[Rfam]
RNA sequence: UAGUUAUCAAGAAAGGUUGAGGGAUUAGACCCAACGAAGCCUUGGCAACCCUUUAUUUUUAAAGAAGGUGCUACAUUCUACUAAUAUUUUUAUAUUAGAAAGAUAACGA
Numbered sequence: 001u002a003g004u005u006a007u008c009a010a011g012a013a014a015g016g017u018u019g020a021g022g023g024a025u026u027a028g029a030c031c032c033a034a035c036g037a038a039g040c041c042u043u044g045g046c047a048a049c050c051c052u053u054u055a056u057u058u059u060u061a062a063a064g065a066a067g068g069u070g071c072u073a074c075a076u077u078c079u080a081c082u083a084a085u086a087u088u089u090u091u092a093u094a095u096u097a098g099a100a101a102g103a104u105a106a107c108g109a
Base pairs, nucleotide, nucleotide: 001109003107004106005105006104007103008102013043014042015041016040017039021032022031023030026080027079028078029077044072045071046070047069049068050067051064052063053062054061076101081098082097083096084095085094086093
A member of the RNA family "SAM riboswitch aptamer (S box leader)" from Oceanihabitans sp. IOP_32, 109 nucleotides long. The base pairs follow the family's consensus structure, which is taken from published work. Its family is annotated with regulation of gene expression in the Gene Ontology. Taxonomically the source falls in Oceanihabitans (Bacteria, Pseudomonadati, Flavobacteriia, Flavobacteriaceae). It scores 87 bits against the family's covariance model.